[Rfam]
RNA sequence: UGGCGGGUCCUGCGCAAUGAAAGCCUGUGAACCGUGUCAGGACCGGGAGGGAGCAGCACUAAGCAGUUACUUGCAUGUGCCGCAGGGGUGCCUGCAUUUG
Numbered sequence: 001u002g003g004c005g006g007g008u009c010c011u012g013c014g015c016a017a018u019g020a021a022a023g024c025c026u027g028u029g030a031a032c033c034g035u036g037u038c039a040g041g042a043c044c045g046g047g048a049g050g051g052a053g054c055a056g057c058a059c060u061a062a063g064c065a066g067u068u069a070c071u072u073g074c075a076u077g078u079g080c081c082g083c084a085g086g087g088g089u090g091c092c093u094g095c096a097u098u099u100g
Base pairs, nucleotide, nucleotide: 004094005093006092007091008090009086010085011084012083013082014081015077017076018075019074021072022071023068025066026065027064028063034059035058036057037056043050044049
The record is a 100-nucleotide RNA from Phascolarctobacterium sp. CAG:266, which matches "Bacterial small signal recognition particle RNA" in Rfam. Gene Ontology terms of the family: SRP-dependent cotranslational protein targeting to membrane, signal sequence recognition and signal recognition particle, plasma membrane targeting. Pairs were carried over by alignment from the consensus structure, which is taken from published work. It is annotated as a non-coding RNA gene.